Rfam assigns this 109-nucleotide sequence from Clostridium carboxidivorans to the family "SAM riboswitch aptamer (S box leader)". The source organism's lineage runs through Bacteria, Clostridia, Eubacteriales, Clostridiaceae and Clostridium carboxidivorans. The match comes from Rfam's covariance-model search (85 bits). Its family is annotated with regulation of gene expression in the Gene Ontology.
RNA sequence: ACCUUAUCAAGAGAAACUGAGGGACUGGCCCUAUGACGUUUCAGCAACCACAUGCAGCGAGCAUGUAAAGGUGCUAAUUCCAGCAGAACUUUGUUCUGGAAGAUGAGAG
Numbered sequence: 001a002c003c004u005u006a007u008c009a010a011g012a013g014a015a016a017c018u019g020a021g022g023g024a025c026u027g028g029c030c031c032u033a034u035g036a037c038g039u040u041u042c043a044g045c046a047a048c049c050a051c052a053u054g055c056a057g058c059g060a061g062c063a064u065g066u067a068a069a070g071g072u073g074c075u076a077a078u079u080c081c082a083g084c085a086g087a088a089c090u091u092u093g094u095u096c097u098g099g100a101a102g103a104u105g106a107g108a109g
Base pairs, nucleotide, nucleotide: 003107004106005105006104007103008102013042014041015040016039017038021031022030023029025083026082027081028080043075044074045073046072048071049070079101084098085097086096087095088094089093